[Rfam]
RNA: DUF3800-XI RNA
RNA sequence: UGGACUGGUCAUAGGGCCCAGGUCCACCCGAGGCGGGGGAAGUCCCC
Numbered sequence: 001u002g003g004a005c006u007g008g009u010c011a012u013a014g015g016g017c018c019c020a021g022g023u024c025c026a027c028c029c030g031a032g033g034c035g036g037g038g039g040a041a042g043u044c045c046c047c
Stems, first nucleotide, its partner, number of pairs: 001026006007018004